[Rfam]
RNA sequence: GGAGCAUCAGAGAUGAGAGCUAAUUAAAUCGUCAUUCUUGCACUUUGAUUGUCAGUGAAGAUAAUAAUGCGGAAUCUGAGAUGCUC
Numbered sequence: 001g002g003a004g005c006a007u008c009a010g011a012g013a014u015g016a017g018a019g020c021u022a023a024u025u026a027a028a029u030c031g032u033c034a035u036u037c038u039u040g041c042a043c044u045u046u047g048a049u050u051g052u053c054a055g056u057g058a059a060g061a062u063a064a065u066a067a068u069g070c071g072g073a074a075u076c077u078g079a080g081a082u083g084c085u086c
Base pairs, nucleotide, nucleotide: 002086003085004084005083006082007081008080
About this RNA
A member of the RNA family "Small nucleolar RNA snoR26" from Striga asiatica, 86 nucleotides long. Rfam 15.1 lists 611 matches to the family in 220 species. The literature on the family includes a 2001 paper in RNA by Brown et al., "Multiple snoRNA gene clusters from Arabidopsis". The family's RNA type in Rfam is C/D-box small nucleolar RNA. NCBI's taxonomy places the organism under Eukaryota, Viridiplantae, Magnoliopsida, Orobanchaceae, Striga.